Shown here is a 78-nucleotide RNA from Clupea harengus, a member of the family "mir-130 microRNA precursor family". A reference for the family is Lagos-Quintana et al. (2002), "Identification of tissue-specific microRNAs from mouse", Curr Biol. Rfam links the family to the GO terms RISC complex and miRNA-mediated post-transcriptional gene silencing. Taxonomically the source falls in Clupea (Eukaryota, Craniata, Euteleostomi, Clupeoidei). Pairs were carried over by alignment from the consensus structure, which was predicted with PFOLD.
RNA sequence: UGUUGUCCAUGGCCCUUAUUCUGUUGUACUACUGUGAACUCAUUAAGCAGUGCAAUAUUAAAAGGGCAUUGGCUAACA
Numbered sequence: 001u002g003u004u005g006u007c008c009a010u011g012g013c014c015c016u017u018a019u020u021c022u023g024u025u026g027u028a029c030u031a032c033u034g035u036g037a038a039c040u041c042a043u044u045a046a047g048c049a050g051u052g053c054a055a056u057a058u059u060a061a062a063a064g065g066g067c068a069u070u071g072g073c074u075a076a077c078a
Stems, first nucleotide, its partner, number of pairs: 001078003005073001007072003012067006019060001022057009